[Rfam]
A member of the RNA family "Ribosomal protein L10 leader" from Gemella sp. zg-570, 134 nucleotides long. A reference for the family is Zengel and Lindahl (1994), "Diverse mechanisms for regulating ribosomal protein synthesis in Escherichia coli", Prog Nucleic Acid Res Mol Biol.
RNA sequence: AAGUCAGUUUAAAAUGUACCUAAGACAGUAGGGAACGAAAGUUUUAAUAAUCCUACCGAGGACGAUAAUAAAAAGAGUAUUAUGUUAUGCCUUUUUGUGUGUUCUCGCAUGCAGAAAGGUUCUUUUAUUGGUAC
Numbered sequence: 001a002a003g004u005c006a007g008u009u010u011a012a013a014a015u016g017u018a019c020c021u022a023a024g025a026c027a028g029u030a031g032g033g034a035a036c037g038a039a040a041g042u043u044u045u046a047a048u049a050a051u052c053c054u055a056c057c058g059a060g061g062a063c064g065a066u067a068a069u070a071a072a073a074a075g076a077g078u079a080u081u082a083u084g085u086u087a088u089g090c091c092u093u094u095u096u097g098u099g100u101g102u103u104c105u106c107g108c109a110u111g112c113a114g115a116a117a118g119g120u121u122c123u124u125u126u127a128u129u130g131g132u133a134c
Stems, first nucleotide, its partner, number of pairs: 028056006034043003090119013
About the family: This family is a putative r-protein leader autoregulatory structure found in B. subtilis and other low-GC Gram-positive bacteria.